[Rfam]
RNA sequence: GAGUUGUUGUCUUUGGUUAUCUAGCUGUAUGAGUGUGUUGGUCUUCAUAAAGCUAGAUAACCGAAAGUAAAAACUC
Numbered sequence: 001g002a003g004u005u006g007u008u009g010u011c012u013u014u015g016g017u018u019a020u021c022u023a024g025c026u027g028u029a030u031g032a033g034u035g036u037g038u039u040g041g042u043c044u045u046c047a048u049a050a051a052g053c054u055a056g057a058u059a060a061c062c063g064a065a066a067g068u069a070a071a072a073a074c075u076c
Base pairs, nucleotide, nucleotide: 001076002075003074004073005072007070008069009068010067012065013064014063015062016061017060018059019058020057021056022055023054024053025052026051028049029048030047031046032045033044

Rfam assigns this 76-nucleotide RNA sequence from Anolis carolinensis to the family "mir-9/mir-79 microRNA precursor family". The base pairs follow the family's consensus structure, which was predicted with RNAalifold. The sequence is in the family's curated seed alignment.